[Rfam]
RNA sequence: AGUGGAAGCACUAUGUAUUCUUUCGGGAAAACAGUGCGACUGCGUGCCUUUUGCAUAAUGA
Numbered sequence: 001a002g003u004g005g006a007a008g009c010a011c012u013a014u015g016u017a018u019u020c021u022u023u024c025g026g027g028a029a030a031a032c033a034g035u036g037c038g039a040c041u042g043c044g045u046g047c048c049u050u051u052u053g054c055a056u057a058a059u060g061a
Base pairs, nucleotide, nucleotide: 002043003042004041005040008037009036010035011034012033047060049058